[Rfam]
RNA sequence: GUUGGUUAUGGUGAUAUGUUACCAAGAACAAUAUUAGGUAAAUUAAUUGGUGCAUGUUGUUGUAUAUGUGGUGUAUUAGUAGUAGCAUUACCAAUACCAAUUAUUGUCAAUAAU
Numbered sequence: 001g002u003u004g005g006u007u008a009u010g011g012u013g014a015u016a017u018g019u020u021a022c023c024a025a026g027a028a029c030a031a032u033a034u035u036a037g038g039u040a041a042a043u044u045a046a047u048u049g050g051u052g053c054a055u056g057u058u059g060u061u062g063u064a065u066a067u068g069u070g071g072u073g074u075a076u077u078a079g080u081a082g083u084a085g086c087a088u089u090a091c092c093a094a095u096a097c098c099a100a101u102u103a104u105u106g107u108c109a110a111u112a113a114u
Base pairs, nucleotide, nucleotide: 001114002113004111008107009106010105011104013102014101015100018097019096037077038076039075040074049063